[Rfam]
RNA sequence: AACCUGAGCAGCCUCUCCUGAUGAUCCUUCUUCCUGAGCCGCUCUGUGAUGAGCAAACUGAGCCUCUAAGAAGUUGACUGAAGGGGCUGCUUAGGG
Numbered sequence: 001a002a003c004c005u006g007a008g009c010a011g012c013c014u015c016u017c018c019u020g021a022u023g024a025u026c027c028u029u030c031u032u033c034c035u036g037a038g039c040c041g042c043u044c045u046g047u048g049a050u051g052a053g054c055a056a057a058c059u060g061a062g063c064c065u066c067u068a069a070g071a072a073g074u075u076g077a078c079u080g081a082a083g084g085g086g087c088u089g090c091u092u093a094g095g096g
Stems, first nucleotide, its partner, number of pairs: 007091009

Small nucleolar RNA SNORD125: a 96-nucleotide RNA sequence from Cnephaeus nilssonii.